Rfam assigns this 73-nucleotide RNA sequence from Truepera radiovictrix to the family "tRNA". Taxonomically the source falls in Truepera radiovictrix (Bacteria, Deinococcota, Trueperales, Trueperaceae). The family's consensus secondary structure is taken from published work. Gene Ontology term of the family: triplet codon-amino acid adaptor activity.

RNA sequence: GGGUCGUUAGCUCAGCUGGUAGAGCAGCUGACUUUUAAUCAGCGGGUCGUAGGUUCGAGCCCUACACGACCCA
Numbered sequence: 001g002g003g004u005c006g007u008u009a010g011c012u013c014a015g016c017u018g019g020u021a022g023a024g025c026a027g028c029u030g031a032c033u034u035u036u037a038a039u040c041a042g043c044g045g046g047u048c049g050u051a052g053g054u055u056c057g058a059g060c061c062c063u064a065c066a067c068g069a070c071c072c073a
Stems, first nucleotide, its partner, number of pairs: 001072007010025004027043005049065005
A search with the family's covariance model found it, with a score of 73 bits.